[Rfam]
RNA sequence: UUGCACAGCGAACACCCAGGGAUGCUAACGUGGCUCUCCCUGCUCUCAUGUCUGUGCUACAGUGACUCUGGUCUUUUCCUCUGCAUUAGGAGAGUUCCUGUCCCUCCUACAUGUAUUCAGCUGAUCAGGACAAUA
Numbered sequence: 001u002u003g004c005a006c007a008g009c010g011a012a013c014a015c016c017c018a019g020g021g022a023u024g025c026u027a028a029c030g031u032g033g034c035u036c037u038c039c040c041u042g043c044u045c046u047c048a049u050g051u052c053u054g055u056g057c058u059a060c061a062g063u064g065a066c067u068c069u070g071g072u073c074u075u076u077u078c079c080u081c082u083g084c085a086u087u088a089g090g091a092g093a094g095u096u097c098c099u100g101u102c103c104c105u106c107c108u109a110c111a112u113g114u115a116u117u118c119a120g121c122u123g124a125u126c127a128g129g130a131c132a133a134u135a
Stems, first nucleotide, its partner, number of pairs: 003057006010051001017042004022037001024034003059074001061072001063070002081120003084113003088108005094102001
Shown here is a 135-nucleotide RNA from Larimichthys crocea, a member of the family "Small nucleolar RNA SNORA22". Its family is annotated with RNA processing and nucleolus in the Gene Ontology. Taxonomically the source falls in Larimichthys (Eukaryota, Craniata, Teleostei, Acanthomorphata). Rfam describes the family as follows. ACA22 is a member of the H/ACA class of snoRNA that guide the sites of modification of uridines to pseudouridines. The family's consensus secondary structure was predicted with RNAfold.